[Rfam]
RNA sequence: UCCUCCUACAAAGGCGUGCUUGUAUUGUUUGGUUUACAAGUGCGUAAGAACUGGAGGUAUAGUGAAGUGAAUGAUGAUUUUUAAAUAACACUGCAGAAAGCAGUUUGCUGGUCAGCAUUCCUACACGU
Numbered sequence: 001u002c003c004u005c006c007u008a009c010a011a012a013g014g015c016g017u018g019c020u021u022g023u024a025u026u027g028u029u030u031g032g033u034u035u036a037c038a039a040g041u042g043c044g045u046a047a048g049a050a051c052u053g054g055a056g057g058u059a060u061a062g063u064g065a066a067g068u069g070a071a072u073g074a075u076g077a078u079u080u081u082u083a084a085a086u087a088a089c090a091c092u093g094c095a096g097a098a099a100g101c102a103g104u105u106u107g108c109u110g111g112u113c114a115g116c117a118u119u120c121c122u123a124c125a126c127g128u
Base pairs, nucleotide, nucleotide: 002057003056004055005054006053015044016043017042018041019040020039021038024030069121071119073118088106090104091103092102093101094100
Rfam assigns this 128-nucleotide sequence from Acipenser ruthenus to the family "Small nucleolar RNA SNORA38". ACA38 is a member of the H/ACA class of snoRNA that guide the sites of modification of uridines to pseudouridines. It is annotated as an H/ACA-box small nucleolar RNA. The base pairs follow the family's consensus structure, which was predicted with RNAfold.